[Rfam]
The family of this 215-nucleotide RNA sequence from Methyloprofundus sedimenti is "Group II catalytic intron D1-D4-6". Group II introns are found in rRNA, tRNA and mRNA of organelles in fungi, plants and protists, and also in mRNA in bacteria.
RNA sequence: AAAGUCCCGCUCUGGCAAGGUAGGUCAACCACCAGUUAGUAAACAUCGGGCAGGCGGAGGUAACUCCAAAUGUUAAGUACGAUGGGCGCAAGUUGAAGUGAUUUAGCCUCGAAAUUAUUUUUUAUUUAAGCAGGACGACAGAGUAUCCCUUCUGGAAGUCCCCAUUGUAUAACGCGCAUGACAAGUAUCAUAGGGCUGCUUCGAGGGCUACAGUU
Dot-bracket structure: ...........((((...(((..[[..))).)))).(.((.......(((((...((((....))))...))))...))).)........................(((((................(((((((((..((((........))))...)))....((.(((.(.((.....]]..)).).))).))))))))))))).........
Numbered sequence: 001a002a003a004g005u006c007c008c009g010c011u012c013u014g015g016c017a018a019g020g021u022a023g024g025u026c027a028a029c030c031a032c033c034a035g036u037u038a039g040u041a042a043a044c045a046u047c048g049g050g051c052a053g054g055c056g057g058a059g060g061u062a063a064c065u066c067c068a069a070a071u072g073u074u075a076a077g078u079a080c081g082a083u084g085g086g087c088g089c090a091a092g093u094u095g096a097a098g099u100g101a102u103u104u105a106g107c108c109u110c111g112a113a114a115u116u117a118u119u120u121u122u123u124a125u126u127u128a129a130g131c132a133g134g135a136c137g138a139c140a141g142a143g144u145a146u147c148c149c150u151u152c153u154g155g156a157a158g159u160c161c162c163c164a165u166u167g168u169a170u171a172a173c174g175c176g177c178a179u180g181a182c183a184a185g186u187a188u189c190a191u192a193g194g195g196c197u198g199c200u201u202c203g204a205g206g207g208c209u210a211c212a213g214u215u
Stems, first nucleotide, its partner, number of pairs: 012035004019030003024182002037082001039080002048078001049074004056067004107206005128201006134160003139154004165195002168192003172188001174186002